The record is a 145-nucleotide sequence from Anisodus acutangulus, which matches "Small nucleolar RNA snoR145" in Rfam. A reference for the family is Chen and Wu (2009), "Mining small RNA sequencing data: a new approach to identify small nucleolar RNAs in Arabidopsis", Nucleic Acids Res. The family's RNA type in Rfam is H/ACA-box small nucleolar RNA. Pairs were carried over by alignment from the consensus structure, which was predicted with mfold. Taxonomically the source falls in Anisodus (Eukaryota, Viridiplantae, asterids, lamiids).

[Rfam]
RNA sequence: AAGCGAAGGUUCCCAGCGGAGAGGGUUAACUCUAGAACGAGACCUCUCUAACACUAUAGAACAACCUUCGCAGAUGAAUUGCCGAAUCGUAGGAAACUCCAAAUUACUCCAUUUUGGUGCUUCUUGAACCCUUGGCUAAAAUUAU
Dot-bracket structure: ..(((((((..(.(....).).(((....(((......)))....)))................))))))).........(((((.......((..(.(((((.........))))).)..))........))))).........